[Rfam]
RNA sequence: UACUUAUCCAGAGAGGCGGAGGGACUGGCCCUAUGAUGCCCAGCAACCGGUUAAUCAACACACGGUGCUAAUUCCAACAGAGUACGUCACUCUGGCAGAUAAGGA
Numbered sequence: 001u002a003c004u005u006a007u008c009c010a011g012a013g014a015g016g017c018g019g020a021g022g023g024a025c026u027g028g029c030c031c032u033a034u035g036a037u038g039c040c041c042a043g044c045a046a047c048c049g050g051u052u053a054a055u056c057a058a059c060a061c062a063c064g065g066u067g068c069u070a071a072u073u074c075c076a077a078c079a080g081a082g083u084a085c086g087u088c089a090c091u092c093u094g095g096c097a098g099a100u101a102a103g104g105a
Base pairs, nucleotide, nucleotide: 001105003103004102005101006100007099008098013041015040016039017038021031022030023029026076027075028074042069043068044067045066047065048064049061052058073097078094079093080092081091082090083089
Dot-bracket structure: (.((((((....(.(((...(((..[[[)))......))))((((.(((..(.....)..)..))))))...(]]].((((((.....))))))..))))))).)